[Rfam]
RNA sequence: AGCCGCGCGGUGAGCACAAAGCGAACUAUUCUUUCGCCUUUUACUAAAGAAUACCGUGUGCUUGCCGCAUAUAGCGGCAUACGCCAAUUUUUGGAGGGACCUUCCAUUUUGGUUGGUC
Numbered sequence: 001a002g003c004c005g006c007g008c009g010g011u012g013a014g015c016a017c018a019a020a021g022c023g024a025a026c027u028a029u030u031c032u033u034u035c036g037c038c039u040u041u042u043a044c045u046a047a048a049g050a051a052u053a054c055c056g057u058g059u060g061c062u063u064g065c066c067g068c069a070u071a072u073a074g075c076g077g078c079a080u081a082c083g084c085c086a087a088u089u090u091u092u093g094g095a096g097g098g099a100c101c102u103u104c105c106a107u108u109u110u111g112g113u114u115g116g117u118c
Stems, first nucleotide, its partner, number of pairs: 003077004008067011027053008099117003104112001
This 118-nucleotide RNA from Actinidia chinensis belongs to the Rfam family "U5 spliceosomal RNA". The base pairs follow the family's consensus structure, which is taken from published work. The literature on the family includes a 1997 paper in Nucleic Acids Res by Zwieb, "The uRNA database". Its family is annotated with spliceosomal tri-snRNP complex assembly and U5 snRNP in the Gene Ontology. Rfam 15.1 lists 28,527 matches to the family in 2,489 species. NCBI's taxonomy places the organism under Eukaryota, Streptophytina, Spermatophyta, Ericales, Actinidia chinensis. Rfam describes the family as follows. U5 RNA is a component of both types of known spliceosome.